[Rfam]
RNA sequence: GCACGAGGCUAGGGGUGCCCGCACAGGUUCAACGCCGUGUGUCGGGCUGAGAAACACCCUUGGAACCUGAACCGGAUAAUUCCGGCGGAGGGAAGCUUCGGAACGCCCGC
Number, nucleotide and partner (000 for none) at each position: 001g000002c000003a000004c000005g000006a098007g097008g096009c095010u094011a060012g059013g058014g057015g000016u054017g047018c046019c045020c044021g043022c000023a000024c000025a000026g000027g000028u000029u000030c000031a000032a000033c000034g000035c000036c000037g000038u000039g000040u000041g000042u000043c021044g020045g019046g018047c017048u000049g000050a000051g000052a000053a000054a016055c000056a000057c014058c013059c012060u011061u000062g000063g000064a000065a000066c091067c090068u089069g000070a000071a000072c085073c084074g083075g082076a000077u000078a000079a000080u000081u000082c075083c074084g073085g072086c000087g000088g000089a068090g067091g066092g000093a000094a010095g009096c008097u007098u006099c000100g000101g000102a000103a000104c000105g000106c000107c000108c000109g000110c000
RNA: TPP riboswitch aptamer (THI element)